[Rfam]
The record is a 98-nucleotide RNA, which matches "pemK RNA" in Rfam. It is one of the family's seed sequences. Rfam classes the family as a cis-regulatory element.

RNA sequence: AUAAUGAUACUCCCUUAUCGCCAUAGUCCGAGCGUUCAAAGCGUCGCAGGCAAUGGUUAGGGCUGCGCGAGAACCGCGCAGGGGUGCAAUUCCCGUGA
Numbered sequence: 001a002u003a004a005u006g007a008u009a010c011u012c013c014c015u016u017a018u019c020g021c022c023a024u025a026g027u028c029c030g031a032g033c034g035u036u037c038a039a040a041g042c043g044u045c046g047c048a049g050g051c052a053a054u055g056g057u058u059a060g061g062g063c064u065g066c067g068c069g070a071g072a073a074c075c076g077c078g079c080a081g082g083g084g085u086g087c088a089a090u091u092c093c094c095g096u097g098a
Base pairs, nucleotide, nucleotide: 012095013062014061015060016059063081064080065079067077068076069075082094083093084092